[Rfam]
Nucleotides: 350
Base pairs, nucleotide, nucleotide: 040053041052042051043050044049057187058186059185060184061183067180068179069177070176071175072174081166082165085163086162087161091107092106093105094104095103108148109147110146111145112144113143114142188203189202190201191200194213195212197211198210199209316331317330318329319328322347323346324345325344326343327342
Number, partner (000 for none) and nucleotide at each position: 001000c002000c003000c004000c005000u006000u007000u008000g009000c010000a011000a012000g013000c014000g015000g016000a017000u018000c019000g020000g021000g022000c023000a024000u025000c026000c027000c028000u029000a030000u031000a032000u033000u034000c035000c036000u037000c038000c039000u040053g041052u042051c043050c044049c045000c046000u047000c048000g049044g050043g051042g052041a053040c054000u055000a056000u057187g058186g059185g060184c061183a062000u063000a064000a065000a066000c067180g068179c069177g070176c071175a072174u073000g074000u075000a076000a077000u078000a079000a080000a081166c082165g083000g084000a085163u086162c087161g088000g089000a090000c091107c092106c093105g094104g095103g096000g097000g098000c099000g100000g101000u102000a103095c104094c105093c106092g107091g108148c109147g110146g111145c112144u113143c114142c115000a116000c117000c118000a119000u120000a121000u122000a123000u124000c125000c126000u127000u128000u129000g130000u131000u132000g133000g134000g135000g136000g137000a138000u139000c140000a141000u142114g143113g144112g145111g146110c147109c148108g149000a150000a151000a152000c153000a154000g155000g156000a157000u158000c159000g160000a161087c162086g163085a164000a165082c166081g167000c168000g169000u170000a171000a172000a173000g174072a175071u176070g177069u178000a179068g180067c181000u182000u183061u184060g185059u186058c187057c188203c189202g190201g191200u192000g193000a194213g195212a196000u197211a198210c199209c200191a201190c202189c203188g204000u205000u206000a207000u208000c209199g210198g211197u212195u213194c214000a215000c216000a217000a218000a219000g220000u221000a222000c223000a224000a225000u226000u227000g228000c229000c230000a231000a232000c233000a234000a235000c236000a237000a238000u239000c240000g241000u242000g243000c244000u245000c246000c247000g248000g249000u250000u251000g252000c253000u254000c255000u256000g257000g258000c259000u260000g261000c262000g263000u264000a265000a266000g267000c268000a269000g270000u271000c272000c273000g274000a275000a276000a277000g278000a279000c280000c281000g282000a283000a284000a285000u286000c287000u288000a289000a290000g291000c292000c293000c294000u295000u296000g297000c298000g299000c300000c301000u302000a303000g304000c305000c306000g307000c308000g309000u310000a311000a312000g313000g314000c315000g316331g317330g318329g319328u320000u321000c322347g323346c324345a325344g326343g327342c328319a329318c330317c331316u332000g333000g334000c335000a336000a337000c338000a339000g340000a341000a342327g343326c344325c345324u346323g347322c348000a349000c350000u
Shown here is a 350-nucleotide RNA from Antarctobacter albus, a member of the family "Alphaproteobacteria transfer-messenger RNA".
It scores 317 bits against the family's covariance model.
Rfam links the family to the GO term RNA catabolic process.
Rfam classes the family as a non-coding RNA gene.